[Rfam]
RNA: Bacterial large subunit ribosomal RNA, nucleotides 9 to 569
Organism: Haloplasma contractile
RNA sequence: UAAUAAGAGCGCACGGUGAAUGCCUAGGCACUAGGAGCCGAAGAAGGACGCGACGAACGGCGAAACGCCUCGGAGAGCAGUAAGUAAGCGACGACCCGGGGAUAUCCGAAUGGGGAAACCCACUAGUGGUCAUACACUAGUACCGAUGUGUGAAUACAUAGCACAUCAGGAGGCAGACCCAGGGAACUGAAACAUCUAAGUACCUGGAGGAAGAGAAAGAAAAAUCGAUUCCCGGAGUAGCGGCGAGCGAAAAGGGAAAAGCCCAAACCAGAGCAAUCUGGGGUUGUAGGACCUUCAACAAAUGAGAAAAAGGUCAUAUUAUAGACGAAUUACCUGGGAAGGUAAACCAAAGACGGUGACAGUCCGGUAGUUGAAAUAAUAUGAACUCUAGAAGGGAUCCUGAGUACGAUCGGACACGAGAAAUCCGGUCGGAAUCUGCGAGGACCAUCUCGCAAGGCUAAAUACUACCUAGUGACCGAUAGUGAACCAGUACCGUGAGGGAAAGGUGAAAAGAACCCCGGAAGGGGAGUGAAAGAGAACCUGAAACCGUGUGCUUACAAG
Numbered sequence: 001u002a003a004u005a006a007g008a009g010c011g012c013a014c015g016g017u018g019a020a021u022g023c024c025u026a027g028g029c030a031c032u033a034g035g036a037g038c039c040g041a042a043g044a045a046g047g048a049c050g051c052g053a054c055g056a057a058c059g060g061c062g063a064a065a066c067g068c069c070u071c072g073g074a075g076a077g078c079a080g081u082a083a084g085u086a087a088g089c090g091a092c093g094a095c096c097c098g099g100g101g102a103u104a105u106c107c108g109a110a111u112g113g114g115g116a117a118a119c120c121c122a123c124u125a126g127u128g129g130u131c132a133u134a135c136a137c138u139a140g141u142a143c144c145g146a147u148g149u150g151u152g153a154a155u156a157c158a159u160a161g162c163a164c165a166u167c168a169g170g171a172g173g174c175a176g177a178c179c180c181a182g183g184g185a186a187c188u189g190a191a192a193c194a195u196c197u198a199a200g201u202a203c204c205u206g207g208a209g210g211a212a213g214a215g216a217a218a219g220a221a222a223a224a225u226c227g228a229u230u231c232c233c234g235g236a237g238u239a240g241c242g243g244c245g246a247g248c249g250a251a252a253a254g255g256g257a258a259a260a261g262c263c264c265a266a267a268c269c270a271g272a273g274c275a276a277u278c279u280g281g282g283g284u285u286g287u288a289g290g291a292c293c294u295u296c297a298a299c300a301a302a303u304g305a306g307a308a309a310a311a312g313g314u315c316a317u318a319u320u321a322u323a324g325a326c327g328a329a330u331u332a333c334c335u336g337g338g339a340a341g342g343u344a345a346a347c348c349a350a351a352g353a354c355g356g357u358g359a360c361a362g363u364c365c366g367g368u369a370g371u372u373g374a375a376a377u378a379a380u381a382u383g384a385a386c387u388c389u390a391g392a393a394g395g396g397a398u399c400c401u402g403a404g405u406a407c408g409a410u411c412g413g414a415c416a417c418g419a420g421a422a423a424u425c426c427g428g429u430c431g432g433a434a435u436c437u438g439c440g441a442g443g444a445c446c447a448u449c450u451c452g453c454a455a456g457g458c459u460a461a462a463u464a465c466u467a468c469c470u471a472g473u474g475a476c477c478g479a480u481a482g483u484g485a486a487c488c489a490g491u492a493c494c495g496u497g498a499g500g501g502a503a504a505g506g507u508g509a510a511a512a513g514a515a516c517c518c519c520g521g522a523a524g525g526g527g528a529g530u531g532a533a534a535g536a537g538a539a540c541c542u543g544a545a546a547c548c549g550u551g552u553g554c555u556u557a558c559a560a561g
Base pairs, nucleotide, nucleotide: 007556008555009554010553011552012551013550014549015548016547022541023506024505027477028476029474030473031472032471033470034469035468036466037465038173039172046107047106048105049062050061051060068101069100070099071098072097073096077089078088112121113120114119122141123140124139125138126137127136128135143170144169145167146166147165148164149163150162151161178209179207180206181205182204183203189196190195219226220225229462230257231256232255233254240248241247260459261458262457263456268281269280270279271278272277288401289400290399292395293394294393295392296391311387312386314384315383316382317381318380319379320378321377322376324372325371326370330345331344332343333342334341348352354366355365356364407431408430409429410428411427412426413425414424438453439452440451441450442449493500494499516527517526518525519524